RNA sequence: AACGAUAAAGGCAAACCAACUGAAAAGUUGGGACGCAAAGCCAAGGGCCUGUAAAAUGGCAGCCGGCUACCGAAA
Numbered sequence: 001a002a003c004g005a006u007a008a009a010g011g012c013a014a015a016c017c018a019a020c021u022g023a024a025a026a027g028u029u030g031g032g033a034c035g036c037a038a039a040g041c042c043a044a045g046g047g048c049c050u051g052u053a054a055a056a057u058g059g060c061a062g063c064c065g066g067c068u069a070c071c072g073a074a075a
Stems, first nucleotide, its partner, number of pairs: 003072002011036002016031006034062001039068004045064002047060003
Rfam assigns this 75-nucleotide RNA sequence from Acetobacterium woodii to the family "c-di-GMP-I-GGC riboswitch aptamer". Pairs were carried over by alignment from the consensus structure, which is taken from published work. NCBI's taxonomy places the organism under Bacteria, Clostridia, Eubacteriales, Acetobacterium, Acetobacterium woodii. The family is grouped with related families in Rfam's "c-di-GMP_I riboswitch clan".